The record is a 71-nucleotide sequence from Octopus sinensis, which matches "mir-965 microRNA precursor family" in Rfam. On this family, see Huang et al., Bioorg Khim 2012: "The regulation of silkworm fibroin L chain production by miRNA-965 and miRNA-1926 in insect cells". NCBI's taxonomy places the organism under Eukaryota, Spiralia, Lophotrochozoa, Mollusca, Octopus. Rfam links the family to the GO terms miRNA-mediated post-transcriptional gene silencing and RISC complex. The family's consensus secondary structure was predicted with RNAalifold.
RNA sequence: AAAAAUAAGAAAAAAGCUGUCCGCUUAUUAGCUCAUGGAGCUAAUAAGCGGACAGCUUUUUUCUUAUUUUU
Numbered sequence: 001a002a003a004a005a006u007a008a009g010a011a012a013a014a015a016g017c018u019g020u021c022c023g024c025u026u027a028u029u030a031g032c033u034c035a036u037g038g039a040g041c042u043a044a045u046a047a048g049c050g051g052a053c054a055g056c057u058u059u060u061u062u063c064u065u066a067u068u069u070u071u
Base pairs, nucleotide, nucleotide: 003069004068005067006066007065009063010062011061013059014058017055018054019053020052021051024048025047026046027045028044029043
Dot-bracket structure: ..(((((.(((.((..(((((..((((((.............))))))..)))))..)).))).)))))..